[Rfam]
RNA sequence: UGUUGCUUUUGCAACCACUAAUGAUUCAGUAGCCUGUGAGAAUCGCCUUCGGGUGGCUACAGCGAAAGCUCCUGUAACCUGAAAGGGAGCAAACUUUGGUAAAUCUGCACACCUUUGAAAGCAGAUAUCGUCUGUGUAAGCGCAC
Dot-bracket structure: .(((((....))))).......[[[[[.((((((.....]]]]](((....))))))))).......(((((....[[[......)))))((...))]]]...(((((.[.[.[[.....)))))...((....)).]]].]...
Numbered sequence: 001u002g003u004u005g006c007u008u009u010u011g012c013a014a015c016c017a018c019u020a021a022u023g024a025u026u027c028a029g030u031a032g033c034c035u036g037u038g039a040g041a042a043u044c045g046c047c048u049u050c051g052g053g054u055g056g057c058u059a060c061a062g063c064g065a066a067a068g069c070u071c072c073u074g075u076a077a078c079c080u081g082a083a084a085g086g087g088a089g090c091a092a093a094c095u096u097u098g099g100u101a102a103a104u105c106u107g108c109a110c111a112c113c114u115u116u117g118a119a120a121g122c123a124g125a126u127a128u129c130g131u132c133u134g135u136g137u138a139a140g141c142g143c144a145c
Stems, first nucleotide, its partner, number of pairs: 002015005023044005029060006045054003068090005077100003091097002104125005110142001112140001114139002129136002
This 145-nucleotide sequence from Klebsiella michiganensis belongs to the Rfam family "STAXI RNA". By type it is a small RNA. Rfam 15.1 lists 130 matches to the family in 68 species. Pairs were carried over by alignment from the consensus structure, which is taken from published work. The source organism's lineage runs through Bacteria, Gammaproteobacteria, Enterobacterales, Enterobacteriaceae and Klebsiella.